[Rfam]
RNA sequence: UCUUAGGGAUGCUAGGGUUCCGGUUCGCAAGAAUGCCUGGUCCGAGAGCAGCCCGGUGUGCCCAGGCGAUCACAGAGCAGGCUGUCGCCAGACGCGCACUACACGGCGGGAUAAAAGCCCGGGAGAU
Numbered sequence: 001u002c003u004u005a006g007g008g009a010u011g012c013u014a015g016g017g018u019u020c021c022g023g024u025u026c027g028c029a030a031g032a033a034u035g036c037c038u039g040g041u042c043c044g045a046g047a048g049c050a051g052c053c054c055g056g057u058g059u060g061c062c063c064a065g066g067c068g069a070u071c072a073c074a075g076a077g078c079a080g081g082c083u084g085u086c087g088c089c090a091g092a093c094g095c096g097c098a099c100u101a102c103a104c105g106g107c108g109g110g111a112u113a114a115a116a117g118c119c120c121g122g123g124a125g126a127u
Stems, first nucleotide, its partner, number of pairs: 007053002010050003015043002020040002022037001023034004055100007102122001104125001108120003